[Rfam]
RNA sequence: CCCAGUGACGCGGGGUGUCCGAUCAGGGAUCGGGCUGAGAGAAGACCCGUCGAACCUGACCUAGCUCACACUAGUGGAGGGACGUCACCCGUGAUGACG
Numbered sequence: 001c002c003c004a005g006u007g008a009c010g011c012g013g014g015g016u017g018u019c020c021g022a023u024c025a026g027g028g029a030u031c032g033g034g035c036u037g038a039g040a041g042a043a044g045a046c047c048c049g050u051c052g053a054a055c056c057u058g059a060c061c062u063a064g065c066u067c068a069c070a071c072u073a074g075u076g077g078a079g080g081g082a083c084g085u086c087a088c089c090c091g092u093g094a095u096g097a098c099g
Stems, first nucleotide, its partner, number of pairs: 006087005011049004016043001017035007055080003061074004
The record is a 99-nucleotide RNA from Halosaccharopolyspora lacisalsi, which matches "TPP riboswitch aptamer (THI element)" in Rfam. Vitamin B(1) in its active form thiamin pyrophosphate (TPP) is an essential coenzyme that is synthesised by coupling of pyrimidine and thiazole moieties in bacteria. A search with the family's covariance model found it, with a score of 61 bits. NCBI's taxonomy places the organism under Bacteria, Actinomycetota, Actinomycetes, Pseudonocardiaceae, Halosaccharopolyspora.